A member of the RNA family "Nuclear RNase P" from Catenaria anguillulae, 400 nucleotides long. The family's RNA type in Rfam is ribozyme. It scores 41 bits against the family's covariance model. Lineage of the source: Eukaryota > Opisthokonta > Fungi > Catenariaceae > Catenaria anguillulae.
RNA sequence: GCAACUAGCGGCAUCAAUGGCAAACACACCGAGUGCGUUCGUUCCGACCAACGUCCCUCUUCGUUUUCCCAAGCGAACCUUUCCGCCCAUUGGGAAGGUCCGAGAUCCCCGUUCCUGCACCCGCCGCCAUGCACUUUCGCCCGUCGUUUCUGCGUGGUUGGCGUUCCUCUCGCCGGGGCCCGAGCAUGUUCCGCAUUCUUUCUUUUGGAACACGGGUGGGCAGGCUGGCCGCCUUUCGGGGCGGUCGUUGUGGCACCAGCAACCAGGGUCCUCCUCGGAGGAUCAGUGAGAGCCGCCACAGUGGGGACAUUCUAUUCAGUGCAAUAUGCUGCAGCCCUGCCCCUCCGUCGGCCACUGGUCGGCGGAUCGGUACGGCCAACUCAAUUCGGACUAUUGUUGC
Numbered sequence: 001g002c003a004a005c006u007a008g009c010g011g012c013a014u015c016a017a018u019g020g021c022a023a024a025c026a027c028a029c030c031g032a033g034u035g036c037g038u039u040c041g042u043u044c045c046g047a048c049c050a051a052c053g054u055c056c057c058u059c060u061u062c063g064u065u066u067u068c069c070c071a072a073g074c075g076a077a078c079c080u081u082u083c084c085g086c087c088c089a090u091u092g093g094g095a096a097g098g099u100c101c102g103a104g105a106u107c108c109c110c111g112u113u114c115c116u117g118c119a120c121c122c123g124c125c126g127c128c129a130u131g132c133a134c135u136u137u138c139g140c141c142c143g144u145c146g147u148u149u150c151u152g153c154g155u156g157g158u159u160g161g162c163g164u165u166c167c168u169c170u171c172g173c174c175g176g177g178g179c180c181c182g183a184g185c186a187u188g189u190u191c192c193g194c195a196u197u198c199u200u201u202c203u204u205u206u207g208g209a210a211c212a213c214g215g216g217u218g219g220g221c222a223g224g225c226u227g228g229c230c231g232c233c234u235u236u237c238g239g240g241g242c243g244g245u246c247g248u249u250g251u252g253g254c255a256c257c258a259g260c261a262a263c264c265a266g267g268g269u270c271c272u273c274c275u276c277g278g279a280g281g282a283u284c285a286g287u288g289a290g291a292g293c294c295g296c297c298a299c300a301g302u303g304g305g306g307a308c309a310u311u312c313u314a315u316u317c318a319g320u321g322c323a324a325u326a327u328g329c330u331g332c333a334g335c336c337c338u339g340c341c342c343c344u345c346c347g348u349c350g351g352c353c354a355c356u357g358g359u360c361g362g363c364g365g366a367u368c369g370g371u372a373c374g375g376c377c378a379a380c381u382c383a384a385u386u387c388g389g390a391c392u393a394u395u396g397u398u399g400c
Base pairs, nucleotide, nucleotide: 001400002399003398004397006331007330008329009328010327016091017090018089019088020087031081032080033079100389101388102387103386104385107306108305109304110303229244230243231242232241233240234239248301249300250299251298252297253296254295268294270292334376335375336374338372339371340370341369